RNA sequence: UGAGUAAGUCAGAUAGUCGCUGCUGACCAAGGUCAGGAGAGGAAAGUCCGAGCUCCAUAGGGCAGGGUGCUGGGUAACUCCCAGUGGAGGCGACUCUAAGGAAAGUGCAACAGAGAUAUACCGCCAAAGUUUCUUUGGUAAGGGUGGAAAGGCGAGGUAAGAGCUCACCAGCGCAUAGGUGACUAUGCGGCUAUGUAAACCCCACUUGGAGCAAGAUCGAAUAGGAAGACAUAUGGGGCGGCCCGUCCCGUCUUCGGGUGUAUCGCUUGAGUCUAUUGGUAACAAUAGGCCUAGAUAGAUGACUAUCAAAUACAGAACUCGGCUUAUAGACUUAUCUCGUAUA
Dot-bracket structure: ((((((((((((((((((.((.(((((....))))).))....[[[.[[[[[((((...[[[[.((((((((((.....)))))(((((....)))).)((...(((((...........(((((((((...)))))))..)).......((.(((.......))).)).((((((((....))))))).)..)))..)))))))))))))...(((.......((((((....(((((.]]]])))))))))))......)))......((((((((....))))))))..........)))))))..........]]]]]]]].).)))))).))))....
Numbered sequence: 001u002g003a004g005u006a007a008g009u010c011a012g013a014u015a016g017u018c019g020c021u022g023c024u025g026a027c028c029a030a031g032g033u034c035a036g037g038a039g040a041g042g043a044a045a046g047u048c049c050g051a052g053c054u055c056c057a058u059a060g061g062g063c064a065g066g067g068u069g070c071u072g073g074g075u076a077a078c079u080c081c082c083a084g085u086g087g088a089g090g091c092g093a094c095u096c097u098a099a100g101g102a103a104a105g106u107g108c109a110a111c112a113g114a115g116a117u118a119u120a121c122c123g124c125c126a127a128a129g130u131u132u133c134u135u136u137g138g139u140a141a142g143g144g145u146g147g148a149a150a151g152g153c154g155a156g157g158u159a160a161g162a163g164c165u166c167a168c169c170a171g172c173g174c175a176u177a178g179g180u181g182a183c184u185a186u187g188c189g190g191c192u193a194u195g196u197a198a199a200c201c202c203c204a205c206u207u208g209g210a211g212c213a214a215g216a217u218c219g220a221a222u223a224g225g226a227a228g229a230c231a232u233a234u235g236g237g238g239c240g241g242c243c244c245g246u247c248c249c250g251u252c253u254u255c256g257g258g259u260g261u262a263u264c265g266c267u268u269g270a271g272u273c274u275a276u277u278g279g280u281a282a283c284a285a286u287a288g289g290c291c292u293a294g295a296u297a298g299a300u301g302a303c304u305a306u307c308a309a310a311u312a313c314a315g316a317a318c319u320c321g322g323c324u325u326a327u328a329g330a331c332u333u334a335u336c337u338c339g340u341a342u343a
Stems, first nucleotide, its partner, number of pairs: 001339004005334006011327001012307007020039002023036005044325003048322005053211004060244004065207005070084005085099001086097004100202002105200002107196003121143002123139007151169002154166003171191001172189007215264003225255006235249005271290008